The record is a 134-nucleotide RNA sequence from Vibrio nigripulchritudo, which matches "Vibrio regulatory RNA of OmpA" in Rfam. A reference for the family is Song and Wai (2009), "A novel sRNA that modulates virulence and environmental fitness of Vibrio cholerae", RNA Biol.
RNA sequence: GUAGCAAGCAGGGCAUUCCGAGUCUGCGGUCGUAUUGGACUGAUUUAUUUACUGCAACUUGUUACAAACGCUGCUUUUUUCUUAUUAACUCCUAUUUGUAUCCGCCCAAACCCAAGUGGUUUGGGCUUUUUUUA
Numbered sequence: 001g002u003a004g005c006a007a008g009c010a011g012g013g014c015a016u017u018c019c020g021a022g023u024c025u026g027c028g029g030u031c032g033u034a035u036u037g038g039a040c041u042g043a044u045u046u047a048u049u050u051a052c053u054g055c056a057a058c059u060u061g062u063u064a065c066a067a068a069c070g071c072u073g074c075u076u077u078u079u080u081c082u083u084a085u086u087a088a089c090u091c092c093u094a095u096u097u098g099u100a101u102c103c104g105c106c107c108a109a110a111c112c113c114a115a116g117u118g119g120u121u122u123g124g125g126c127u128u129u130u131u132u133u134a
Stems, first nucleotide, its partner, number of pairs: 001065005008055004020046002029044004104126009

Annotation: A search with the family's covariance model found it, with a score of 58 bits. Pairs were carried over by alignment from the consensus structure, which is taken from published work.